This 425-nucleotide RNA sequence from Nannospalax galili belongs to the Rfam family "Vertebrate telomerase RNA". From the family's description: Telomerase is a ribonucleoprotein reverse transcriptase that synthesises telomeric DNA. Telomerase RNAs differ greatly in sequence and structure between vertebrates, ciliates and yeasts, but they share a 5' pseudoknot structure close to the template sequence. NCBI's taxonomy places the organism under Eukaryota, Deuterostomia, Craniata, Spalacinae, Nannospalax. On this family, see Antal et al., Nucleic Acids Res 2002: "Analysis of the structure of human telomerase RNA in vivo". Gene Ontology terms of the family: telomerase catalytic core complex, telomerase activity and telomere maintenance via telomerase.
RNA sequence: UGGGCCGAGAGGCUGUGCCGCGGUUCCUCUAACCCUAACCUAUCUGGCUGUGGGCGCCGUGCUUUUGCUCCCCGCGCGCUGUUUUUCUCGCUGGCUUUCAGCGGGCAGAAAGGCGUCGGCCUACCGCCGUCCACCAGGCAUUCUGAGCAAAUCAAAAAAUGCCAGCUGCCGGCGCGCCCGCCUCUCCCAGGGCCCUGCGGCGUCCGGCCGCCCCCGCGUCCCGCCUGGAGGCCGCGGCCGGCCUGGGGCCUCUCCGGAGGUGCCCGCUGCCGCCGCGAAGAGUUGGGCUCUGUUAGCCGCGGGACCCGCGGGGGCUGCCGGCGAGUGGCGGGCCACGGCCGCAGGGAAAGGAACGGAGCUGGUCCCUGCUCACAGUGUCUUCCCUGAGCUGUGGGAAGUGCACUGGGGACUGGGUUCCCACAAGC
Numbered sequence: 001u002g003g004g005c006c007g008a009g010a011g012g013c014u015g016u017g018c019c020g021c022g023g024u025u026c027c028u029c030u031a032a033c034c035c036u037a038a039c040c041u042a043u044c045u046g047g048c049u050g051u052g053g054g055c056g057c058c059g060u061g062c063u064u065u066u067g068c069u070c071c072c073c074g075c076g077c078g079c080u081g082u083u084u085u086u087c088u089c090g091c092u093g094g095c096u097u098u099c100a101g102c103g104g105g106c107a108g109a110a111a112g113g114c115g116u117c118g119g120c121c122u123a124c125c126g127c128c129g130u131c132c133a134c135c136a137g138g139c140a141u142u143c144u145g146a147g148c149a150a151a152u153c154a155a156a157a158a159a160u161g162c163c164a165g166c167u168g169c170c171g172g173c174g175c176g177c178c179c180g181c182c183u184c185u186c187c188c189a190g191g192g193c194c195c196u197g198c199g200g201c202g203u204c205c206g207g208c209c210g211c212c213c214c215c216g217c218g219u220c221c222c223g224c225c226u227g228g229a230g231g232c233c234g235c236g237g238c239c240g241g242c243c244u245g246g247g248g249c250c251u252c253u254c255c256g257g258a259g260g261u262g263c264c265c266g267c268u269g270c271c272g273c274c275g276c277g278a279a280g281a282g283u284u285g286g287g288c289u290c291u292g293u294u295a296g297c298c299g300c301g302g303g304a305c306c307c308g309c310g311g312g313g314g315c316u317g318c319c320g321g322c323g324a325g326u327g328g329c330g331g332g333c334c335a336c337g338g339c340c341g342c343a344g345g346g347a348a349a350g351g352a353a354c355g356g357a358g359c360u361g362g363u364c365c366c367u368g369c370u371c372a373c374a375g376u377g378u379c380u381u382c383c384c385u386g387a388g389c390u391g392u393g394g395g396a397a398g399u400g401c402a403c404u405g406g407g408g409a410c411u412g413g414g415u416u417c418c419c420a421c422a423a424g425c
Stems, first nucleotide, its partner, number of pairs: 001189004008185006015178001016174005061114005074106002077103005090166006096159003194345007207322002210319001211314007220303005233277005239272004245265003279291004356417004360412007375403004381396004